The family of this 78-nucleotide RNA sequence from Nocardioides agariphilus is "ZMP/ZTP riboswitch aptamer (pfl RNA motif)".
NCBI's taxonomy places the organism under Bacteria, Actinomycetota, Propionibacteriales, Nocardioidaceae, Nocardioides.
Rfam links the family to the GO terms one-carbon metabolic process and regulation of purine nucleotide biosynthetic process.
The family's consensus secondary structure is taken from published work.
RNA sequence: GUGUCCUCACACGACUGGCGCGGGUGGGUGACCACCGGGGAGUGAACGUCGUGGGCAUCGCCCGCCUGGGUGCCCGCU
Numbered sequence: 001g002u003g004u005c006c007u008c009a010c011a012c013g014a015c016u017g018g019c020g021c022g023g024g025u026g027g028g029u030g031a032c033c034a035c036c037g038g039g040g041a042g043u044g045a046a047c048g049u050c051g052u053g054g055g056c057a058u059c060g061c062c063c064g065c066c067u068g069g070g071u072g073c074c075c076g077c078u
Stems, first nucleotide, its partner, number of pairs: 003050001005048001010044003015039002017066004024035004055073005